[Rfam]
RNA sequence: GCCAAUGAAGAUAAAAUCCAAUUAAAUGAGGUGUAGUGGAUCUGAGUCCCUGUCUAACAGGGGGAACCUCUCGGUGAUGUUAUUCAUAUGAUAUUACUGGAUUAUACAGAU
Numbered sequence: 001g002c003c004a005a006u007g008a009a010g011a012u013a014a015a016a017u018c019c020a021a022u023u024a025a026a027u028g029a030g031g032u033g034u035a036g037u038g039g040a041u042c043u044g045a046g047u048c049c050c051u052g053u054c055u056a057a058c059a060g061g062g063g064g065a066a067c068c069u070c071u072c073g074g075u076g077a078u079g080u081u082a083u084u085c086a087u088a089u090g091a092u093a094u095u096a097c098u099g100g101a102u103u104a105u106a107c108a109g110a111u
Stems, first nucleotide, its partner, number of pairs: 001111001003109001048062005

A member of the RNA family "Small nucleolar RNA Z278" from Chenopodium quinoa, 111 nucleotides long. It is annotated as a C/D-box small nucleolar RNA. For this family Rfam cites "The high diversity of snoRNAs in plants: identification and comparative study of 120 snoRNA genes from Oryza sativa" (Chen et al., Nucleic Acids Res, 2003). Pairs were carried over by alignment from the consensus structure, which was predicted with PFOLD. The family has 7 seed sequences and 1,130 matches in Rfam 15.1. Taxonomically the source falls in Chenopodium (Eukaryota, Viridiplantae, Magnoliopsida, Mesangiospermae).